[Rfam]
RNA sequence: GGCCUGUGAUGCUUAGAAAUUUGUCCGUACCAUCUGAAAAAGUCUCUGAUGUACAUGUUUUCUUUUAGUUUCUGAGGCCU
Numbered sequence: 001g002g003c004c005u006g007u008g009a010u011g012c013u014u015a016g017a018a019a020u021u022u023g024u025c026c027g028u029a030c031c032a033u034c035u036g037a038a039a040a041a042g043u044c045u046c047u048g049a050u051g052u053a054c055a056u057g058u059u060u061u062c063u064u065u066u067a068g069u070u071u072c073u074g075a076g077g078c079c080u
Stems, first nucleotide, its partner, number of pairs: 001079004